[Rfam]
Annotation: This 76-nucleotide sequence from Clostridium bornimense belongs to the Rfam family "RAGATH-18 RNA".
RNA sequence: CCUUUGGAGUAUCAUACCAAAUGUGAGUAGUUUUAGAUAUUUAUUUAUUAUGAAAGCAGAUACAUUGAAAAAGGAA
Numbered sequence: 001c002c003u004u005u006g007g008a009g010u011a012u013c014a015u016a017c018c019a020a021a022u023g024u025g026a027g028u029a030g031u032u033u034u035a036g037a038u039a040u041u042u043a044u045u046u047a048u049u050a051u052g053a054a055a056g057c058a059g060a061u062a063c064a065u066u067g068a069a070a071a072a073g074g075a076a
Base pairs, nucleotide, nucleotide: 001074002073003072004071005070009063010062011061012060013059022058023057024056030051031050036046
The base pairs follow the family's consensus structure, which is taken from published work. By type it is a small RNA. From the family's description: Actinobacteria, Firmicutes, Fusobacteria, Thermotogae (1 example). Lineage of the source: Bacteria > Bacillati > Bacillota > Clostridiaceae > Clostridium.